[Rfam]
RNA sequence: GUGAAAUGAUGAUUCAGUUUAUCCAUUCGCUGAGUGCGCUGCACUGACCUUCUUCCAAGCCUCAGUUCCUGUUCUAGGAACUUGAGGCUAUGUAGCCUGAAAAUGCCCUGCAGUCUGCAGUGUUCUACUGUGAACUGCUUGUGUGUUGGCAGGCUACCGGUAAGAAUGGUUGGUGUCAGCAGGGACGGGGCCCUCUGAGACCCAUCUCACAAAGAUGAGUGGUGAAAAUCUGAUCAC
Numbered sequence: 001g002u003g004a005a006a007u008g009a010u011g012a013u014u015c016a017g018u019u020u021a022u023c024c025a026u027u028c029g030c031u032g033a034g035u036g037c038g039c040u041g042c043a044c045u046g047a048c049c050u051u052c053u054u055c056c057a058a059g060c061c062u063c064a065g066u067u068c069c070u071g072u073u074c075u076a077g078g079a080a081c082u083u084g085a086g087g088c089u090a091u092g093u094a095g096c097c098u099g100a101a102a103a104u105g106c107c108c109u110g111c112a113g114u115c116u117g118c119a120g121u122g123u124u125c126u127a128c129u130g131u132g133a134a135c136u137g138c139u140u141g142u143g144u145g146u147u148g149g150c151a152g153g154c155u156a157c158c159g160g161u162a163a164g165a166a167u168g169g170u171u172g173g174u175g176u177c178a179g180c181a182g183g184g185a186c187g188g189g190g191c192c193c194u195c196u197g198a199g200a201c202c203c204a205u206c207u208c209a210c211a212a213a214g215a216u217g218a219g220u221g222g223u224g225a226a227a228a229u230c231u232g233a234u235c236a237c
Stems, first nucleotide, its partner, number of pairs: 010236005017229004023222007030214002034210002038180004042175008050166005055160002058089007065081006092157007105144002107141001110138005116132007182208004187203003191199001

Rfam assigns this 237-nucleotide RNA sequence to the family "Small nucleolar RNA SNORD17". The literature on the family includes a 2001 paper in EMBO J by Huttenhofer et al., "RNomics: an experimental approach that identifies 201 candidates for novel, small, non-messenger RNAs in mouse". Rfam 15.1 lists 1,015 matches to the family in 568 species. The snoRNA HBI-43 belongs to the C/D family of snoRNAs, guiding 2'O-ribose methylation at position U3797 of the 28S rRNA. Pseudouridylation in position U3797 is predicted to be guided by the H/ACA snoRNA ACA48. Rfam links the family to the GO terms nucleolus and RNA processing. It is annotated as a C/D-box small nucleolar RNA.